[Rfam]
RNA sequence: UGGUGCUCGCUGGAUGUAACAGCAACUCCAUGUGGAAAGCUGAGUCCGUUCCAGUGGAGGUGCUGUUACCUGCAGAGACCAA
Number, nucleotide and partner (000 for none) at each position: 001u000002g000003g000004u000005g000006c000007u000008c000009g000010c075011u074012g073013g000014a000015u000016g069017u068018a067019a066020c065021a064022g063023c062024a000025a000026c059027u058028c057029c056030a055031u054032g000033u053034g052035g051036a000037a000038a000039g000040c000041u000042g000043a000044g000045u000046c000047c000048g000049u000050u000051c035052c034053a033054g031055u030056g029057g028058a027059g026060g000061u000062g023063c022064u021065g020066u019067u018068a017069c016070c000071u000072g000073c012074a011075g010076a000077g000078a000079c000080c000081a000082a000
The family of this 82-nucleotide sequence from Kryptolebias marmoratus is "mir-194 microRNA precursor family". The match comes from Rfam's covariance-model search (79 bits). The literature on the family includes a 2003 paper in RNA by Lagos-Quintana et al., "New microRNAs from mouse and human". The family has 46 seed sequences and 936 matches in Rfam 15.1.